[Rfam]
RNA sequence: AGUCGGUGAUGACAAACUAAUAUUUCUGACACCUCGUAUGAGAGCUUCCAGCUCCUGAUUCUAACGUUUAUCUGAGGCUA
Dot-bracket structure: ((((.......................................(((...))).......................)))).
A member of the RNA family "Small nucleolar RNA SNORD60" from Stegastes partitus, 80 nucleotides long. Clan: SNORD60 clan. Gene Ontology terms of the family: RNA processing and nucleolus. The organism belongs to Stegastes, within Eukaryota.